[Rfam]
RNA sequence: CUGGAAUGAUGCUUCUUUAGCCAAAUCAGACAUUUUGAUGCGCUCCAUAAGUAAUCCUCUUCAAAGCUUAUUUUCUUGUUAUUAUAGAGGUCCAGUGGUGAACUCUUAGUAAUGGUGAUCAGCUUUGAAUGGAUGCCUUUUGUUGAAGCGCAUCCUCUGAUGAUACCCUUGGGAUUGGUUGCUUGCUGACCAGA
Numbered sequence: 001c002u003g004g005a006a007u008g009a010u011g012c013u014u015c016u017u018u019a020g021c022c023a024a025a026u027c028a029g030a031c032a033u034u035u036u037g038a039u040g041c042g043c044u045c046c047a048u049a050a051g052u053a054a055u056c057c058u059c060u061u062c063a064a065a066g067c068u069u070a071u072u073u074u075c076u077u078g079u080u081a082u083u084a085u086a087g088a089g090g091u092c093c094a095g096u097g098g099u100g101a102a103c104u105c106u107u108a109g110u111a112a113u114g115g116u117g118a119u120c121a122g123c124u125u126u127g128a129a130u131g132g133a134u135g136c137c138u139u140u141u142g143u144u145g146a147a148g149c150g151c152a153u154c155c156u157c158u159g160a161u162g163a164u165a166c167c168c169u170u171g172g173g174a175u176u177g178g179u180u181g182c183u184u185g186c187u188g189a190c191c192a193g194a
Base pairs, nucleotide, nucleotide: 001193002192003191004190
Dot-bracket structure: ((((.........................................................................................................................................................................................)))).